[Rfam]
c-di-AMP riboswitch aptamer (ydaO/yuaA leader): a 159-nucleotide RNA from Paenibacillus roseus. Taxonomically the source falls in Paenibacillus (Bacteria, Bacillati, Caryophanales, Paenibacillaceae). This family represents a conserved RNA structure found upstream of the ydaO and yuaA genes in Bacillus subtilis and related genes in other bacteria.
RNA sequence: ACCAGCUAUAGGCUUACCGGCUGAGAAACGGGGGAACCACAUGUCAGUUUGGGGUGAAUUUGGAGCGUGCCGUUAACCUUCGCAUUCGGCGCGUGAUGAUAGGGCUGCUCUCCUGCCCGAACCCGUCAGCUAACCUCGUCAGCGUAUAUGAGAGAGAUC
Numbered sequence: 001a002c003c004a005g006c007u008a009u010a011g012g013c014u015u016a017c018c019g020g021c022u023g024a025g026a027a028a029c030g031g032g033g034g035a036a037c038c039a040c041a042u043g044u045c046a047g048u049u050u051g052g053g054g055u056g057a058a059u060u061u062g063g064a065g066c067g068u069g070c071c072g073u074u075a076a077c078c079u080u081c082g083c084a085u086u087c088g089g090c091g092c093g094u095g096a097u098g099a100u101a102g103g104g105c106u107g108c109u110c111u112c113c114u115g116c117c118c119g120a121a122c123c124c125g126u127c128a129g130c131u132a133a134c135c136u137c138g139u140c141a142g143c144g145u146a147u148a149u150g151a152g153a154g155a156g157a158u159c
Stems, first nucleotide, its partner, number of pairs: 005143003013025003028139006038051002052124003060099002102118004

A search with the family's covariance model found it, with a score of 73 bits. Gene Ontology terms of the family: cyclic-di-AMP binding and regulation of gene expression.